Rfam assigns this 105-nucleotide sequence from Canis lupus to the family "mir-8834 microRNA precursor family". Rfam 15.1 lists 13,926 matches to the family in 17 species. Pairs were carried over by alignment from the consensus structure, which was predicted with RNAalifold. Taxonomically the source falls in Canis lupus (Eukaryota, Vertebrata, Teleostomi, Carnivora). It scores 90 bits against the family's covariance model. Gene Ontology terms of the family: RISC complex and miRNA-mediated post-transcriptional gene silencing.

[Rfam]
RNA sequence: AGGAGCAACAGCCCUAGUGGCGGGGCCAGCUCUGGAGCCCUGGAUUCAGCCCCCGCGGUAACCCCGGAGCUCUGCAUCUGCAGGGCCUGGAGGCUCCGGGGCGGG
Numbered sequence: 001a002g003g004a005g006c007a008a009c010a011g012c013c014c015u016a017g018u019g020g021c022g023g024g025g026c027c028a029g030c031u032c033u034g035g036a037g038c039c040c041u042g043g044a045u046u047c048a049g050c051c052c053c054c055g056c057g058g059u060a061a062c063c064c065c066g067g068a069g070c071u072c073u074g075c076a077u078c079u080g081c082a083g084g085g086c087c088u089g090g091a092g093g094c095u096c097c098g099g100g101g102c103g104g105g
Stems, first nucleotide, its partner, number of pairs: 002097005009089003012085003019078002022075001024073002028071008040058003